[Rfam]
RNA sequence: UGGCCCAUGGUGUAAUUGGCAACACAGCUGGUUUUGGUCCAGUCGUUCUAGGUUCGAGUCCUAGUGGGCCAA
Numbered sequence: 001u002g003g004c005c006c007a008u009g010g011u012g013u014a015a016u017u018g019g020c021a022a023c024a025c026a027g028c029u030g031g032u033u034u035u036g037g038u039c040c041a042g043u044c045g046u047u048c049u050a051g052g053u054u055c056g057a058g059u060c061c062u063a064g065u066g067g068g069c070c071a072a
Base pairs, nucleotide, nucleotide: 001071002070003069004068005067006066007065010025011024012023013022027043028042029041030040031039048064049063050062051061052060
Shown here is a 72-nucleotide sequence from Croceitalea dokdonensis, a member of the family "tRNA". NCBI's taxonomy places the organism under Bacteria, Bacteroidota, Flavobacteriia, Flavobacteriaceae, Croceitalea dokdonensis.